Annotation
The record is a 290-nucleotide RNA from Phaethon lepturus, which matches "7SK RNA" in Rfam. Rfam's curators write: 7SK was discovered as an abundant small nuclear RNA in the mid-70s but a possible function has only recently been suggested.
RNA sequence: GGAUGUGAGAGCAAUCUGGCUGCGACAUCUGUCACCCCAUUGAUCUCCAGGGUUGAUUCGGCUGAUCUGGCUGGCUAGGCAGGUGUCCCCUUCCUCCCUCACCACUUCACGUGCAUCCCUGCCAAAGCUGCAUGCUCAGUCGAAGAGGACGACCUUCCCUGAUAGAGGUGUAUCAUUCAUCGGUCAAGGGUAUAAGGUAGCUGCGCUCCCCUGCUAGAACCUCCAAACAAGCUCAAGGUCCAUGUGUAGGAAAACAUAGGGUAGUCAAGCUUUCAAGACUGCAGAAUUAA
Numbered sequence: 001g002g003a004u005g006u007g008a009g010a011g012c013a014a015u016c017u018g019g020c021u022g023c024g025a026c027a028u029c030u031g032u033c034a035c036c037c038c039a040u041u042g043a044u045c046u047c048c049a050g051g052g053u054u055g056a057u058u059c060g061g062c063u064g065a066u067c068u069g070g071c072u073g074g075c076u077a078g079g080c081a082g083g084u085g086u087c088c089c090c091u092u093c094c095u096c097c098c099u100c101a102c103c104a105c106u107u108c109a110c111g112u113g114c115a116u117c118c119c120u121g122c123c124a125a126a127g128c129u130g131c132a133u134g135c136u137c138a139g140u141c142g143a144a145g146a147g148g149a150c151g152a153c154c155u156u157c158c159c160u161g162a163u164a165g166a167g168g169u170g171u172a173u174c175a176u177u178c179a180u181c182g183g184u185c186a187a188g189g190g191u192a193u194a195a196g197g198u199a200g201c202u203g204c205g206c207u208c209c210c211c212u213g214c215u216a217g218a219a220c221c222u223c224c225a226a227a228c229a230a231g232c233u234c235a236a237g238g239u240c241c242a243u244g245u246g247u248a249g250g251a252a253a254a255c256a257u258a259g260g261g262u263a264g265u266c267a268a269g270c271u272u273u274c275a276a277g278a279c280u281g282c283a284g285a286a287u288u289a290a
Base pairs, nucleotide, nucleotide: 001108002107003106005102006101007100008099009098011096014092018090019089024087025086026085027084028083029082030081031080032079033078035074036073037070038069039068042067043066044065045064047061048060117170118168119167120166122139125136127135128134140162141161142160147158148157149156200270201269202268206264207263209261210260211259212258213257222251223250224249227247228246229245231243
Pairs were carried over by alignment from the consensus structure, which is taken from published work. A search with the family's covariance model found it, with a score of 265 bits. The source organism's lineage runs through Eukaryota, Sarcopterygii, Sauria, Neognathae and Phaethon.